The family of this 133-nucleotide RNA sequence from Heterocephalus glaber is "Small nucleolar RNA SNORA71". A search with the family's covariance model found it, with a score of 112 bits. Gene Ontology terms of the family: RNA processing and nucleolus. The members of this family belong to the H/ACA class of snoRNAs which bind a number of proteins (including dyskerin, Gar1p and Nop10p) to form snoRNP complexes. This class of snoRNAs are thought to guide the sites of modification of uridines to pseudouridines by forming direct base pairing interactions with substrate RNAs. This family includes U71 (SNORA71), ACA39 (SNORA39) and ACA60 (SNORA60). U71 and ACA60 are predicted to guide the pseudouridylation of U406 and U1004 in 18S rRNA respectively. There is currently no target RNA identified for ACA39. Pairs were carried over by alignment from the consensus structure, which was predicted with PFOLD.
RNA sequence: CCCUGCAUUCGAAAGUGAUUGUGGACUGGCUAUGCCCUGGUCAUUGAUAGUGCAAGGAGAGAAACGUUGAAAGAUGUUUUCCCUGAGUUUAGAGGGUUCACCUGUCCCUUCUGAACCCUGGAGCUUUCCCACA
Numbered sequence: 001c002c003c004u005g006c007a008u009u010c011g012a013a014a015g016u017g018a019u020u021g022u023g024g025a026c027u028g029g030c031u032a033u034g035c036c037c038u039g040g041u042c043a044u045u046g047a048u049a050g051u052g053c054a055a056g057g058a059g060a061g062a063a064a065c066g067u068u069g070a071a072a073g074a075u076g077u078u079u080u081c082c083c084u085g086a087g088u089u090u091a092g093a094g095g096g097u098u099c100a101c102c103u104g105u106c107c108c109u110u111c112u113g114a115a116c117c118c119u120g121g122a123g124c125u126u127u128c129c130c131a132c133a
Stems, first nucleotide, its partner, number of pairs: 001057002004054006014045008023037002026034001066130001069128005087116005092110005